[Rfam]
RNA sequence: GGGGUUCGAGUCGUACGCGUACCUCCUCGUGGUGAACCCCGGGCAACGCUCUAAAGGAGCGGCUGAAUCGCGUAC
Dot-bracket structure: (((((((.............(((.......))))))))))......(((((.....)))))..............
Numbered sequence: 001g002g003g004g005u006u007c008g009a010g011u012c013g014u015a016c017g018c019g020u021a022c023c024u025c026c027u028c029g030u031g032g033u034g035a036a037c038c039c040c041g042g043g044c045a046a047c048g049c050u051c052u053a054a055a056g057g058a059g060c061g062g063c064u065g066a067a068u069c070g071c072g073u074a075c
Stems, first nucleotide, its partner, number of pairs: 001040007021033003047061005
The record is a 75-nucleotide RNA sequence from Tulasnella calospora, which matches "HDV ribozyme from F. prausnitzii" in Rfam. The family has 48 seed sequences and 3,803 matches in Rfam 15.1. The match comes from Rfam's covariance-model search (50 bits). The source organism's lineage runs through Eukaryota, Dikarya, Basidiomycota, Agaricomycetes and Tulasnella calospora.